[Rfam]
RNA sequence: CCAGACGGUCGGGCGGUCGCGGUCCUCGCAAGAGGGUCGAGGAAAGUCCGGGCUCCACGGUGACAAGGCGGUGGGUAACGCCCACCGGGAGCGAUCCCAGGGAUAGCGCCACAGAAAGCAAACCUCCUCCCUUUCGAGGGCGGGAAGGGUGAAAGGGUGGGGUAAGAGCCCACCGCGGACCUGGCGACAGGGACGGCAUGGCAAGCCCCGCCUGGAGCAAGACCGAAUAGGGACCCCGCGUCGACCUCGCGUCGACUAGGCCGUCACUGGCUGAGUAGGGUUCGGGUAGGUCGCGAGAACCGUCCAGCAAUGGGCGGUCCAGAGGAAUGAUCGUCGCAGUCUCGUCCUUCGGGGCGAGGGUGGCACAGAACCCGGCUUAUAGACCGUCUGGUCCG
Dot-bracket structure: ((((((((((((((((((.((((((((....))))))))....[[[.[[[[[((((....[[.[.((((((((((.....)))))(((((....)))).)((...(((((............(((((.((((....)))).)))..)).......((((((.......))))))(((..((((....))))..)).)..)))..)))))))))))))...((((......((((((.................................].]]....)))))).....))))......((((((((....))))))))..........)))))))...................................]]]]]]]].).))))))))))....
Rfam assigns this 395-nucleotide RNA sequence from Caulobacter henricii to the family "Bacterial RNase P class A". A search with the family's covariance model found it, with a score of 295 bits.